[Rfam]
RNA sequence: UAGCUUAUUUUGGCACUAGCACAUUUUUGCUUUGUUUCCUCAUUGAGCAAUCAUGUGUAGUGCCAACAUGGGACA
Number, nucleotide and partner (000 for none) at each position: 001u000002a000003g000004c072005u071006u070007a069008u068009u000010u066011u065012g064013g063014c062015a061016c060017u059018a000019g058020c057021a056022c055023a054024u053025u000026u000027u050028u049029g048030c047031u046032u045033u000034g000035u000036u000037u000038c000039c000040u000041c000042a000043u000044u000045g032046a031047g030048c029049a028050a027051u000052c000053a024054u023055g022056u021057g020058u019059a017060g016061u015062g014063c013064c012065a011066a010067c000068a008069u007070g006071g005072g004073a000074c000075a000
This 75-nucleotide RNA sequence from Austrofundulus limnaeus belongs to the Rfam family "mir-96 microRNA precursor family".
Its family is annotated with miRNA-mediated post-transcriptional gene silencing and RISC complex in the Gene Ontology.
The match comes from Rfam's covariance-model search (81 bits).
NCBI's taxonomy places the organism under Eukaryota, Opisthokonta, Euacanthomorphacea, Atherinomorphae, Austrofundulus.
The family's consensus secondary structure was predicted with RNAalifold.